[Rfam]
RNA sequence: AUGUACUUCCAUGUACAUUCCGGUUCCUGCGCUCCGGGCGCGUCCGGCUGAUGGCCGCUCGCUACGAUUUCUAGAG
Numbered sequence: 001a002u003g004u005a006c007u008u009c010c011a012u013g014u015a016c017a018u019u020c021c022g023g024u025u026c027c028u029g030c031g032c033u034c035c036g037g038g039c040g041c042g043u044c045c046g047g048c049u050g051a052u053g054g055c056c057g058c059u060c061g062c063u064a065c066g067a068u069u070u071c072u073a074g075a076g
Base pairs, nucleotide, nucleotide: 002017003016004015005014006013021036022035023034026031048076049075051072053070054069
Source information: A member of the RNA family "Xanthomonas sRNA sX9" from Thiobacillus denitrificans, 76 nucleotides long. The organism belongs to Thiobacillus, within Bacteria. Pairs were carried over by alignment from the consensus structure, which was predicted with RNAalifold. The family's RNA type in Rfam is small RNA. For this family Rfam cites "Genome-wide transcriptome analysis of the plant pathogen Xanthomonas identifies sRNAs with putative virulence functions" (Schmidtke et al., Nucleic Acids Res, 2011).